[Rfam]
RNA: Xanthomonas sRNA sX9
Organism: Xanthomonas albilineans
RNA sequence: AUGUACCACGCGUACACUGCGGUUCCUGCGCGCUGUCCGCACCCUAGUGGCGGCUGCUCACGACGUUUUGUUAGCC
Numbered sequence: 001a002u003g004u005a006c007c008a009c010g011c012g013u014a015c016a017c018u019g020c021g022g023u024u025c026c027u028g029c030g031c032g033c034u035g036u037c038c039g040c041a042c043c044c045u046a047g048u049g050g051c052g053g054c055u056g057c058u059c060a061c062g063a064c065g066u067u068u069u070g071u072u073a074g075c076c
Stems, first nucleotide, its partner, number of pairs: 002016005020035004025030001048073006